RNA sequence: AAUUUAUAAAGAAGAGGCGAGAGACAGGCUUGUUGACCCUCUGGCAACCUGAGUGAACAAGGUGCCAAAUCCUGCUCCGAAUUUGGGAACUAUAAAUU
Numbered sequence: 001a002a003u004u005u006a007u008a009a010a011g012a013a014g015a016g017g018c019g020a021g022a023g024a025c026a027g028g029c030u031u032g033u034u035g036a037c038c039c040u041c042u043g044g045c046a047a048c049c050u051g052a053g054u055g056a057a058c059a060a061g062g063u064g065c066c067a068a069a070u071c072c073u074g075c076u077c078c079g080a081a082u083u084u085g086g087g088a089a090c091u092a093u094a095a096a097u098u
Stems, first nucleotide, its partner, number of pairs: 001098008013042005021031003025074004043066004048062002051058001075087003079083001
RNA: SAM riboswitch aptamer (S box leader)
Organism: Marivirga atlantica